[Rfam]
RNA sequence: CCCAGCACUGAAGGUGCUGGGCUAUUGUCAUGACGUCCCUACGGGACG
Numbered sequence: 001c002c003c004a005g006c007a008c009u010g011a012a013g014g015u016g017c018u019g020g021g022c023u024a025u026u027g028u029c030a031u032g033a034c035g036u037c038c039c040u041a042c043g044g045g046a047c048g
Stems, first nucleotide, its partner, number of pairs: 001021008035047005
The family of this 48-nucleotide RNA from Lacipirellula limnantheis is "Acido-Lenti-1 RNA".
Taxonomically the source falls in Lacipirellula (Bacteria, Pseudomonadati, Planctomycetota, Lacipirellulaceae).
The family's consensus secondary structure is taken from published work.